[Rfam]
RNA: Small nucleolar RNA snR84
RNA sequence: AUUGCACAACUUAAGUUUGUCGAGGAUCAUUUUUUUUUUUGAAACUGAAUCCUGCUCUUUUUUAGGUGCUUGAAACCCUCGAUGAAUGUGUCAAUGUGCAAAGAUAAACUAUUGUUCUCUGUUGAUUAGUGGUUUUGAUAUUUGCUUUGGAAAUUUUUUUUCCCUUUCCUAUAAUUGGCUUUUGUUUUAACAGUCAUUUGGAAAGAAUAAGCAAUAUUAAAAUUGCGGCUUUAUAUUUAAACGUUGUUUUGCUUUUGCAUGGAUAUUUUAUUUAUGCACUUCUCCUGUUUUAUCAGACCUUCAAUAUUGGUUUUCCCUUCUGUUAUGUUUUCCUUUGCGCUGUUUCCCCCACUGUUGAUAUGUUGUGUAUUAACGCCGGUCGUGUUGUACGUGUUUCAUUGCUGAACAUAUAAUCACUUUUGUUGGAGUUCUUCUUUCAAGUUUGGUAUAGUUCGAUUUGAGAUACACAACAUGGUUUGGCUUAUGGGAGAAACAAUCGGGAUUUCACGAAUAUUGGGAAAUCAUAGAAGUGAAGAUGCCCGAGACAGUUUUGUUCAAAAAGAAGCUAUAAGAACAUGAUUC
Dot-bracket structure: ..............(((..((((((.(((.(((........))).))).((..((.((......)).))..))...))))))..))).........................................(..((((((((...(((((.(((((.....)))))((((((......(((((.(((...))).)))))...))))))...)))))..))))))))..)....................((((((((((((((((((.....))))))))..............................(((((((((....((((..............(.(.((((.(((.....(((((((...)))))))..((((((((((((....((((((((..(.(((...(((.((((..(.((..((((...))))..)).)..)))))))..))).).))))))))..)))))))).))))....))).)))).).)............))))..))))))))).))))))))))...........((((((.........))))))...............